[Rfam]
RNA sequence: AUUGAAUGAGUAUGUUUCCUUCAUAUAUCCUCGAAAAUAAGGUUCGAGAGUCUCUACCGGGUCGCCACUGUAAUGGCCUGACUAUGAAGGCAGAAUUUUUCUGU
Numbered sequence: 001a002u003u004g005a006a007u008g009a010g011u012a013u014g015u016u017u018c019c020u021u022c023a024u025a026u027a028u029c030c031u032c033g034a035a036a037a038u039a040a041g042g043u044u045c046g047a048g049a050g051u052c053u054c055u056a057c058c059g060g061g062u063c064g065c066c067a068c069u070g071u072a073a074u075g076g077c078c079u080g081a082c083u084a085u086g087a088a089g090g091c092a093g094a095a096u097u098u099u100u101c102u103g104u
Base pairs, nucleotide, nucleotide: 018090019089020088021087022086023085024084025083030048031047032046033045034044035043058080059079060078061077062076063075064074
Rfam assigns this 104-nucleotide RNA sequence from Neobacillus vireti to the family "Purine riboswitch aptamer". Pairs were carried over by alignment from the consensus structure, which is taken from published work.